The record is a 93-nucleotide sequence from Flavobacterium cerinum, which matches "TPP riboswitch aptamer (THI element)" in Rfam.
[Rfam]
RNA sequence: CUUUGGCUUUAGGGGUAUUCUGAAAAGAAUUGAGAGAGUCCCUUUGAACCUGACACGGUUUACACCGUCGUAGGGAAAAGCGUGGAAAUAGUA
Number, nucleotide and partner (000 for none) at each position: 001c000002u000003u000004u000005g000006g081007c080008u079009u078010u077011a043012g042013g041014g040015g000016u037017a030018u029019u028020c027021u026022g000023a000024a000025a000026a021027g020028a019029a018030u017031u000032g000033a000034g000035a000036g000037a016038g000039u000040c014041c013042c012043u011044u000045u000046g000047a000048a000049c074050c073051u072052g071053a000054c000055a068056c067057g066058g065059u000060u000061u000062a000063c000064a000065c058066c057067g056068u055069c000070g000071u052072a051073g050074g049075g000076a000077a010078a009079a008080g007081c006082g000083u000084g000085g000086a000087a000088a000089u000090a000091g000092u000093a000